[Rfam]
L17-Actino-Proteobacteria ribosomal protein leader: a 60-nucleotide sequence from Burkholderiales bacterium PBB6. The literature on the family includes a 2020 paper in BMC Microbiol by Eckert and Weinberg, "Discovery of 20 novel ribosomal leader candidates in bacteria and archaea".
RNA sequence: GCGGGCGGCACAGCGCCGUCCGCAACGUGCAAGCCCCGGUACCUGAUCCGGCCGGGGUUC
Number, nucleotide and partner (000 for none) at each position: 001g023002c022003g021004g020005g019006c018007g017008g016009c015010a000011c000012a000013g000014c000015g009016c008017c007018g006019u005020c004021c003022g002023c001024a000025a000026c000027g000028u000029g000030c000031a059032a058033g000034c057035c056036c055037c054038g053039g052040u051041a000042c000043c000044u000045g000046a000047u000048c000049c000050g000051g040052c039053c038054g037055g036056g035057g034058u032059u031060c000